RNA: Group II catalytic intron D1-D4-1
Organism: Caldicoprobacter faecalis
RNA sequence: CAACCCAUGCAGGGAUGUAUGGCUGAGCCUUGAGAAGUCAGCAGAGGCCAUAGUACUUAUCCGAGAUAGGAGAUAAGGAAGGGC
Numbered sequence: 001c002a003a004c005c006c007a008u009g010c011a012g013g014g015a016u017g018u019a020u021g022g023c024u025g026a027g028c029c030u031u032g033a034g035a036a037g038u039c040a041g042c043a044g045a046g047g048c049c050a051u052a053g054u055a056c057u058u059a060u061c062c063g064a065g066a067u068a069g070g071a072g073a074u075a076a077g078g079a080a081g082g083g084c
Stems, first nucleotide, its partner, number of pairs: 001025002005022007038045002047084003056077006